[Rfam]
RNA sequence: AUCGGAAGAAGAGGUUGCAUGACUCAUCAGUAGUCGUUGUUAGGUGAUUAAGAACCGGAGCAAUGAUGAAAGGGUGCCAUGCCGAAAUGGAACGCUGCUUAUUCAGCGAACUGUUGGGCCCUGGUUGAAUAAAUCAGGGACUGUCGCAAUGUGAUAAUUGCGGGGCGCUAUCGACGAU
Numbered sequence: 001a002u003c004g005g006a007a008g009a010a011g012a013g014g015u016u017g018c019a020u021g022a023c024u025c026a027u028c029a030g031u032a033g034u035c036g037u038u039g040u041u042a043g044g045u046g047a048u049u050a051a052g053a054a055c056c057g058g059a060g061c062a063a064u065g066a067u068g069a070a071a072g073g074g075u076g077c078c079a080u081g082c083c084g085a086a087a088u089g090g091a092a093c094g095c096u097g098c099u100u101a102u103u104c105a106g107c108g109a110a111c112u113g114u115u116g117g118g119c120c121c122u123g124g125u126u127g128a129a130u131a132a133a134u135c136a137g138g139g140a141c142u143g144u145c146g147c148a149a150u151g152u153g154a155u156a157a158u159u160g161c162g163g164g165g166c167g168c169u170a171u172c173g174a175c176g177a178u
Stems, first nucleotide, its partner, number of pairs: 008171001010169002017082005023076001025074001033067008086115005093108005116142002119139008144163007
RNA: Lysine riboswitch aptamer
Organism: Paucilactobacillus vaccinostercus